[Rfam]
Rfam assigns this 309-nucleotide sequence from Polaribacter sp. Hel1_33_78 to the family "Bacterial RNase P class A". It is annotated as a ribozyme. From the family's description: Ribonuclease P (RNase P) is a ubiquitous endoribonuclease, found in archaea, bacteria and eukarya as well as chloroplasts and mitochondria. Its best characterised activity is the generation of mature 5'-ends of tRNAs by cleaving the 5'-leader elements of precursor-tRNAs.
RNA sequence: UUAGCAGACUUAUCUUAUCGCCCUGAACUUGAUUCAGGGAGGAAAGUCCGGACACCAUGGAGUAAUCAUAGCGGAUAACAUCCGUCCAACGUAAGUUGAGGACAAGUGCAACAGAAAGCAAGUACAGUUCGGCUGUAGUGAAACCAGGUAAACUCUAUGAGGUGCAAUGCCAUGUAAAUUAGAGCUUGAGAGCUACUCGCUCGAUUCUAAAGGGUAGGCAGAUAGAUUCUGAAAGUAAUUUUAGAACUAGAUAAAUGAUAAGAACCUUAUUUUAGGGUACAGAAUUCGGCUUACAAGUCUGCUUUUUAC
Numbered sequence: 001u002u003a004g005c006a007g008a009c010u011u012a013u014c015u016u017a018u019c020g021c022c023c024u025g026a027a028c029u030u031g032a033u034u035c036a037g038g039g040a041g042g043a044a045a046g047u048c049c050g051g052a053c054a055c056c057a058u059g060g061a062g063u064a065a066u067c068a069u070a071g072c073g074g075a076u077a078a079c080a081u082c083c084g085u086c087c088a089a090c091g092u093a094a095g096u097u098g099a100g101g102a103c104a105a106g107u108g109c110a111a112c113a114g115a116a117a118g119c120a121a122g123u124a125c126a127g128u129u130c131g132g133c134u135g136u137a138g139u140g141a142a143a144c145c146a147g148g149u150a151a152a153c154u155c156u157a158u159g160a161g162g163u164g165c166a167a168u169g170c171c172a173u174g175u176a177a178a179u180u181a182g183a184g185c186u187u188g189a190g191a192g193c194u195a196c197u198c199g200c201u202c203g204a205u206u207c208u209a210a211a212g213g214g215u216a217g218g219c220a221g222a223u224a225g226a227u228u229c230u231g232a233a234a235g236u237a238a239u240u241u242u243a244g245a246a247c248u249a250g251a252u253a254a255a256u257g258a259u260a261a262g263a264a265c266c267u268u269a270u271u272u273u274a275g276g277g278u279a280c281a282g283a284a285u286u287c288g289g290c291u292u293a294c295a296a297g298u299c300u301g302c303u304u305u306u307u308a309c
Stems, first nucleotide, its partner, number of pairs: 003303008013263007021039007044292003048289005053164004062197001066160005071085005086100001087098004101155002106153002108149002123137006168220004179210005190202004227246008